[Rfam]
RNA sequence: UUAAUAAAUUAUUCGUAUUUCCGUAUAUGUUUAGAGAUAGGGUCUAAACGUUUCUACCUGGCUACCGUAAAUUGCCGGACUACGGGGUGUUUAUAUUUUAUU
Number, nucleotide and partner (000 for none) at each position: 001u000002u000003a000004a000005u000006a000007a000008a000009u000010u000011a000012u000013u000014c000015g000016u000017a000018u000019u087020u086021c085022c084023g083024u082025a081026u000027a000028u000029g049030u048031u047032u046033a045034g044035a043036g000037a000038u000039a000040g000041g000042g000043u035044c034045u033046a032047a031048a030049c029050g000051u000052u000053u000054c000055u000056a000057c000058c078059u077060g076061g075062c074063u000064a072065c000066c000067g000068u000069a000070a000071a000072u064073u000074g062075c061076c060077g059078g058079a000080c000081u025082a024083c023084g022085g021086g020087g019088u000089g000090u000091u000092u000093a000094u000095a000096u000097u000098u000099u000100a000101u000102u000